This 76-nucleotide RNA from Xanthomonas oryzae belongs to the Rfam family "Xanthomonas sRNA sX9". The family has 16 seed sequences and 309 matches in Rfam 15.1. A reference for the family is Schmidtke et al. (2011), "Genome-wide transcriptome analysis of the plant pathogen Xanthomonas identifies sRNAs with putative virulence functions", Nucleic Acids Res. The match comes from Rfam's covariance-model search (56 bits). It is annotated as a small RNA. The base pairs follow the family's consensus structure, which was predicted with RNAalifold.

RNA sequence: AUGUAGCACGCGAGCGCUGCAAUCCCUGCGUGCCGGCCGCACCCACCUGACGACUGCUCGCUACAUUUUGUCAGCU
Numbered sequence: 001a002u003g004u005a006g007c008a009c010g011c012g013a014g015c016g017c018u019g020c021a022a023u024c025c026c027u028g029c030g031u032g033c034c035g036g037c038c039g040c041a042c043c044c045a046c047c048u049g050a051c052g053a054c055u056g057c058u059c060g061c062u063a064c065a066u067u068u069u070g071u072c073a074g075c076u
Stems, first nucleotide, its partner, number of pairs: 002016003020035001023032001025030001047074007